[Rfam]
Shown here is an 81-nucleotide sequence from Myotis myotis, a member of the family "mir-574 microRNA precursor family". On this family, see Nielsen et al., Anim Genet 2010: "MicroRNA identity and abundance in porcine skeletal muscles determined by deep sequencing". Rfam links the family to the GO terms miRNA-mediated post-transcriptional gene silencing and RISC complex. NCBI's taxonomy places the organism under Eukaryota, Chordata, Mammalia, Chiroptera, Myotis. It scores 90 bits against the family's covariance model.
RNA sequence: AGGCCUGAAGAGAGAGGCAGGAUCUGAUAUGCAGUCUCCUUGGCAGCUGUUGAUCAGCCAUUGCCUCUCUCUUUCUCUCUG
Numbered sequence: 001a002g003g004c005c006u007g008a009a010g011a012g013a014g015a016g017g018c019a020g021g022a023u024c025u026g027a028u029a030u031g032c033a034g035u036c037u038c039c040u041u042g043g044c045a046g047c048u049g050u051u052g053a054u055c056a057g058c059c060a061u062u063g064c065c066u067c068u069c070u071c072u073u074u075c076u077c078u079c080u081g
Stems, first nucleotide, its partner, number of pairs: 008073013024057005032049004